[Rfam]
RNA sequence: GGGUAGUCUGAAGGUAGUGAGUUAUCUAAAUUGAUUAUUCAGUCAUUUACAGAUGGACUCCUCAUUCUACUCAUUCUCCCCUUCUCACUGCUAUACUUGGCUAGUCUUAA
Numbered sequence: 001g002g003g004u005a006g007u008c009u010g011a012a013g014g015u016a017g018u019g020a021g022u023u024a025u026c027u028a029a030a031u032u033g034a035u036u037a038u039u040c041a042g043u044c045a046u047u048u049a050c051a052g053a054u055g056g057a058c059u060c061c062u063c064a065u066u067c068u069a070c071u072c073a074u075u076c077u078c079c080c081c082u083u084c085u086c087a088c089u090g091c092u093a094u095a096c097u098u099g100g101c102u103a104g105u106c107u108u109a110a
Base pairs, nucleotide, nucleotide: 001106002105004103005102006101007100008099010098011097014094015093016089017088018087019086020085021084032073033072034071036069037068
Description:
Shown here is a 110-nucleotide RNA sequence from Microcebus murinus, a member of the family "Y RNA". A reference for the family is Teunissen et al. (2000), "Conserved features of Y RNAs: a comparison of experimentally derived secondary structures", Nucleic Acids Res. The family's consensus secondary structure is taken from published work. The match comes from Rfam's covariance-model search (54 bits). Rfam classes the family as a non-coding RNA gene.